[Rfam]
RNA: mir-15 microRNA precursor family
Organism: Cricetulus griseus
RNA sequence: UCCUGGCUCUAGCAGCACAGAAAUAUUGGCACUGGGAAGCGAGUCUGCCAAUAUUGGCUGUGUUGCUCCAGGCAGGGUGG
Number, nucleotide and partner (000 for none) at each position: 001u000002c077003c076004u000005g000006g000007c000008u000009c000010u000011a067012g066013c065014a064015g063016c062017a061018c060019a059020g000021a000022a055023a054024u053025a052026u051027u050028g049029g048030c047031a046032c000033u000034g000035g000036g000037a000038a000039g000040c000041g000042a000043g000044u000045c000046u031047g030048c029049c028050a027051a026052u025053a024054u023055u022056g000057g000058c000059u019060g018061u017062g016063u015064u014065g013066c012067u011068c000069c000070a000071g000072g000073c000074a000075g000076g003077g002078u000079g000080g000